[Rfam]
RNA sequence: GUGCCUGUGGGAUGAACAGGUCCCAAUAUUUACACCAUUUUAUUCACUUUGUCAGCUAAUGGUCAUAUUUUUAGCUGAUCAUUGAGAAUGGGAAAUAC
Numbered sequence: 001g002u003g004c005c006u007g008u009g010g011g012a013u014g015a016a017c018a019g020g021u022c023c024c025a026a027u028a029u030u031u032a033c034a035c036c037a038u039u040u041u042a043u044u045c046a047c048u049u050u051g052u053c054a055g056c057u058a059a060u061g062g063u064c065a066u067a068u069u070u071u072u073a074g075c076u077g078a079u080c081a082u083u084g085a086g087a088a089u090g091g092g093a094a095a096u097a098c
Stems, first nucleotide, its partner, number of pairs: 035091005051079008
Rfam assigns this 98-nucleotide RNA from Oryza sativa to the family "Small nucleolar RNA snoR99". It is annotated as an H/ACA-box small nucleolar RNA. Rfam's curators put it in the seed alignment. Taxonomically the source falls in Oryza sativa (Eukaryota, Viridiplantae, Streptophyta, Oryzoideae). The base pairs follow the family's consensus structure, which was predicted with WAR. The literature on the family includes a 2002 paper in Curr Biol by Marker et al., "Experimental RNomics: identification of 140 candidates for small non-messenger RNAs in the plant Arabidopsis thaliana".